FMN riboswitch aptamer (RFN element): a 152-nucleotide RNA from Vineibacter terrae. The family's consensus secondary structure is taken from published work.
RNA sequence: CAUCGUUCUCAGGGCGGGGUGGAAGUCCCCACCGGCGGUAUGUGCGAGCCAUCGCACGAGCCCGCGAGCGCCUGCCGGCUCUGCCGGCAGGGUCAGCAGAUUCGGUGCGAAGCCGAAGCCGACGGUCACAGUCCGGAUGGAAGAGAACGGGA
Numbered sequence: 001c002a003u004c005g006u007u008c009u010c011a012g013g014g015c016g017g018g019g020u021g022g023a024a025g026u027c028c029c030c031a032c033c034g035g036c037g038g039u040a041u042g043u044g045c046g047a048g049c050c051a052u053c054g055c056a057c058g059a060g061c062c063c064g065c066g067a068g069c070g071c072c073u074g075c076c077g078g079c080u081c082u083g084c085c086g087g088c089a090g091g092g093u094c095a096g097c098a099g100a101u102u103c104g105g106u107g108c109g110a111a112g113c114c115g116a117a118g119c120c121g122a123c124g125g126u127c128a129c130a131g132u133c134c135g136g137a138u139g140g141a142a143g144a145g146a147a148c149g150g151g152a
Stems, first nucleotide, its partner, number of pairs: 003150008017029003031132002033121002035065004060119002068097002101117005123135003